[Rfam]
RNA sequence: CGAUUCCUUCGGGGCAGGGUGAGGCACGGUGUGCCAAUUCCCGAUCGGUGGUGACGCAGAUGCGAAGUCCACGAGCCGCAAGGCAGGAACUGGUGAGAGUCCAGUACCGACGGUAUAGUCCGGAUAGUAGAAGGAGAAC
Numbered sequence: 001c002g003a004u005u006c007c008u009u010c011g012g013g014g015c016a017g018g019g020u021g022a023g024g025c026a027c028g029g030u031g032u033g034c035c036a037a038u039u040c041c042c043g044a045u046c047g048g049u050g051g052u053g054a055c056g057c058a059g060a061u062g063c064g065a066a067g068u069c070c071a072c073g074a075g076c077c078g079c080a081a082g083g084c085a086g087g088a089a090c091u092g093g094u095g096a097g098a099g100u101c102c103a104g105u106a107c108c109g110a111c112g113g114u115a116u117a118g119u120c121c122g123g124a125u126a127g128u129a130g131a132a133g134g135a136g137a138a139c
Stems, first nucleotide, its partner, number of pairs: 004136007017042003044119002046109002048072004067107002077083001089105005111122003
Dot-bracket structure: ...(((((((......(((....................))).[[((((((...............[[))))....(.....).....(((((.......)))))]])).(((....]]))).......)))))))...

Description: A member of the RNA family "FMN riboswitch aptamer (RFN element)" from Alicyclobacillus sp. SO9, 139 nucleotides long. It scores 87 bits against the family's covariance model. Gene Ontology term of the family: FMN binding. The base pairs follow the family's consensus structure, which is taken from published work.